[Rfam]
RNA sequence: UACAUGGAUGGCGGUGGAGUCCGCCGACAACCGCGCCCGCUGGAGGCGCCAAUGACUCCUACGAGAGC
Numbered sequence: 001u002a003c004a005u006g007g008a009u010g011g012c013g014g015u016g017g018a019g020u021c022c023g024c025c026g027a028c029a030a031c032c033g034c035g036c037c038c039g040c041u042g043g044a045g046g047c048g049c050c051a052a053u054g055a056c057u058c059c060u061a062c063g064a065g066a067g068c
Stems, first nucleotide, its partner, number of pairs: 010025004016059006033049004
RNA: Fluoride riboswitch aptamer (crcB RNA motif)
Organism: Kofleriaceae bacterium